[Rfam]
RNA: Small nucleolar RNA SNORA57
Organism: Cyclopterus lumpus
RNA sequence: CCUCCAUUUCUUGGCACACACGUGGUUGUCAGUACUCGUGUGUGAAAUGUACGGAGGAAAAAUAAAUGCAGUGCUAUGUCUUCGGUGCCGGUGUGUGUUAUCGUCUGCCGGUUCUAUCCUCAAUCGCUGUAACAUUC
Numbered sequence: 001c002c003u004c005c006a007u008u009u010c011u012u013g014g015c016a017c018a019c020a021c022g023u024g025g026u027u028g029u030c031a032g033u034a035c036u037c038g039u040g041u042g043u044g045a046a047a048u049g050u051a052c053g054g055a056g057g058a059a060a061a062a063u064a065a066a067u068g069c070a071g072u073g074c075u076a077u078g079u080c081u082u083c084g085g086u087g088c089c090g091g092u093g094u095g096u097g098u099u100a101u102c103g104u105c106u107g108c109c110g111g112u113u114c115u116a117u118c119c120u121c122a123a124u125c126g127c128u129g130u131a132a133c134a135u136u137c
Stems, first nucleotide, its partner, number of pairs: 001057005015044006022037001024035001069129005088111006
Dot-bracket structure: (((((.........((((((.(.(..........).).))))))........)))))...........(((((..............((((((............)))))).............)))))........